Rfam assigns this 80-nucleotide RNA from Daucus carota to the family "mir-156 microRNA precursor family". Rfam 15.1 lists 1,401 matches to the family in 221 species. This family represents the plant microRNA (miRNA) precursor mir-156. Rfam links the family to the GO terms miRNA-mediated post-transcriptional gene silencing and RISC complex. A reference for the family is Reinhart et al. (2002), "MicroRNAs in plants", Genes Dev.
[Rfam]
RNA sequence: GUGACAGAAGAAAGUGAGCACACAUCAACUUUUGGCAUUUUUAUGUUCAAAUUUAUGCGUGCUCACUCUCUAUCUGUCAC
Numbered sequence: 001g002u003g004a005c006a007g008a009a010g011a012a013a014g015u016g017a018g019c020a021c022a023c024a025u026c027a028a029c030u031u032u033u034g035g036c037a038u039u040u041u042u043a044u045g046u047u048c049a050a051a052u053u054u055a056u057g058c059g060u061g062c063u064c065a066c067u068c069u070c071u072a073u074c075u076g077u078c079a080c
Base pairs, nucleotide, nucleotide: 001080002079003078004077005076006075007074008073010070011069013067014066015065016064017063018062019061020060021059023057024056025055